[Rfam]
RNA: mir-132 microRNA precursor family
RNA sequence: GAGCAUCAGCACCUUGGCUUUAGACUGCUUACUGCUUAUACAGUAUCAAAGUACAGUAACAGUCUACAGUCAUGGCUACUGAAGCCUG
Number, nucleotide and partner (000 for none) at each position: 001g000002a000003g000004c000005a000006u000007c000008a000009g000010c000011a000012c075013c074014u000015u072016g071017g070018c069019u000020u000021u000022a000023g064024a063025c062026u061027g060028c000029u059030u058031a057032c056033u055034g000035c000036u000037u000038a000039u000040a000041c000042a000043g000044u000045a000046u000047c000048a000049a000050a000051g000052u000053a000054c000055a033056g032057u031058a030059a029060c027061a026062g025063u024064c023065u000066a000067c000068a000069g018070u017071c016072a015073u000074g013075g012076c000077u000078a000079c000080u000081g000082a000083a000084g000085c000086c000087u000088g000